Nucleotides: 096
Base pairs, nucleotide, nucleotide: 002062003061004060005059006058007057008056021049022048023047024046025045026044
Number, partner (000 for none) and nucleotide at each position: 001000c002062g003061g004060g005059u006058c007057g008056a009000g010000a011000g012000g013000c014000g015000c016000u017000g018000c019000a020000a021049c022048g023047g024046g025045c026044u027000g028000c029000u030000g031000g032000g033000a034000c035000c036000a037000c038000c039000a040000c041000c042000c043000c044026a045025g046024c047023c048022c049021g050000c051000c052000a053000c054000g055000c056008u057007c058006g059005a060004c061003c062002c063000g064000u065000u066000u067000u068000c069000c070000g071000a072000u073000c074000c075000g076000c077000a078000a079000c080000a081000a082000g083000g084000g085000c086000g087000c088000c089000u090000c091000c092000c093000a094000c095000u096000u

Record summary:
Rfam assigns this 96-nucleotide RNA sequence from Allokutzneria albata to the family "SAH (S-adenosyl-L-homocysteine) riboswitch aptamer". Rfam 15.1 lists 1,354 matches to the family in 1,132 species.